[Rfam]
Rfam assigns this 124-nucleotide RNA sequence from Patiria miniata to the family "Vault RNA". Rfam's curators write: This family of RNAs are found as part of the enigmatic vault ribonucleoprotein complex. The complex consists of a major vault protein (MVP), two minor vault proteins (VPARP and TEP1), and several small untranslated RNA molecules.
RNA sequence: GUGCUGGCUUAGCAAUGUGGAUACUUCGUUAUGUAAUUCAUUGGUAGAAUAUAAAGCCUCGAACUUUAAGGUUGUGGGUUCGAUUCCCACCUUAACACAUCCACAUGCGCAGUCCAGCAUUUUG
Numbered sequence: 001g002u003g004c005u006g007g008c009u010u011a012g013c014a015a016u017g018u019g020g021a022u023a024c025u026u027c028g029u030u031a032u033g034u035a036a037u038u039c040a041u042u043g044g045u046a047g048a049a050u051a052u053a054a055a056g057c058c059u060c061g062a063a064c065u066u067u068a069a070g071g072u073u074g075u076g077g078g079u080u081c082g083a084u085u086c087c088c089a090c091c092u093u094a095a096c097a098c099a100u101c102c103a104c105a106u107g108c109g110c111a112g113u114c115c116a117g118c119a120u121u122u123u124g
Base pairs, nucleotide, nucleotide: 002119003118004117005116006115007114012108013107014106017104018103019102020101026083027082028081